[Rfam]
RNA sequence: UUCGGUAUUCCGAUACCGAAUCACAACUCGUGCGGUAAGCCACUGCAACGGCCGUCCGCAUAAGUCCUGUAUGUGCCUGGGCCAAUCCAACGGCAGGGCACCGAAUUCAAAAUACAAGGAG
Numbered sequence: 001u002u003c004g005g006u007a008u009u010c011c012g013a014u015a016c017c018g019a020a021u022c023a024c025a026a027c028u029c030g031u032g033c034g035g036u037a038a039g040c041c042a043c044u045g046c047a048a049c050g051g052c053c054g055u056c057c058g059c060a061u062a063a064g065u066c067c068u069g070u071a072u073g074u075g076c077c078u079g080g081g082c083c084a085a086u087c088c089a090a091c092g093g094c095a096g097g098g099c100a101c102c103g104a105a106u107u108c109a110a111a112a113u114a115c116a117a118g119g120a121g
Stems, first nucleotide, its partner, number of pairs: 001020008030061006039052003073101004078096001
FTHFS RNA: a 121-nucleotide RNA sequence.
Rfam classes the family as a cis-regulatory element.
Pairs were carried over by alignment from the consensus structure, which is taken from published work.